Small nucleolar RNA snoR136: a 133-nucleotide sequence from Cicer arietinum. Its family is annotated with RNA processing and nucleolus in the Gene Ontology. Rfam 15.1 lists 452 matches to the family in 212 species.

RNA sequence: GAGGCUUCGUAUUUUUAUAUUAUUCAUGCUUAGUGUGUUUUGCAAUUUUCAAUUGAAGCCUAUAGUUGUGUUCCCCUCGCUAUCCAAUACUUGCAAUUCUGAUGCUGUAAUUGGACGUCGGGUAACAAAAUUU
Numbered sequence: 001g002a003g004g005c006u007u008c009g010u011a012u013u014u015u016u017a018u019a020u021u022a023u024u025c026a027u028g029c030u031u032a033g034u035g036u037g038u039u040u041u042g043c044a045a046u047u048u049u050c051a052a053u054u055g056a057a058g059c060c061u062a063u064a065g066u067u068g069u070g071u072u073c074c075c076c077u078c079g080c081u082a083u084c085c086a087a088u089a090c091u092u093g094c095a096a097u098u099c100u101g102a103u104g105c106u107g108u109a110a111u112u113g114g115a116c117g118u119c120g121g122g123u124a125a126c127a128a129a130a131u132u133u
Stems, first nucleotide, its partner, number of pairs: 001063001003060003008055002011053003017048001019046002027044003032039001070126003074122003078117002083115005093105003